[Rfam]
RNA sequence: GGCUGGUCUGAAGGUAGUGAGUUAUCUCAUUUGAUUGCUCAUGCACAGUUACAGAUCAAACACCUUGUUUUACUCUUCCCCCCUUCUCACUACUACACUUGACUAGUCUUAA
Numbered sequence: 001g002g003c004u005g006g007u008c009u010g011a012a013g014g015u016a017g018u019g020a021g022u023u024a025u026c027u028c029a030u031u032u033g034a035u036u037g038c039u040c041a042u043g044c045a046c047a048g049u050u051a052c053a054g055a056u057c058a059a060a061c062a063c064c065u066u067g068u069u070u071u072a073c074u075c076u077u078c079c080c081c082c083c084u085u086c087u088c089a090c091u092a093c094u095a096c097a098c099u100u101g102a103c104u105a106g107u108c109u110u111a112a
Stems, first nucleotide, its partner, number of pairs: 001108008010100002014096002016091006047074003051070001
Y RNA: a 112-nucleotide RNA from Piliocolobus tephrosceles. Rfam's curators write: Y RNAs are components of the Ro ribonucleoprotein particle (Ro RNP), in association with Ro60 and La proteins. The Y RNAs and Ro60 and La proteins are well conserved, but the function of the Ro RNP is not known. In humans the RNA component can be one of four small RNAs -- hY1, hY3, hY4 and hY5. The family's consensus secondary structure is taken from published work. The organism belongs to Piliocolobus, within Eukaryota. A search with the family's covariance model found it, with a score of 71 bits.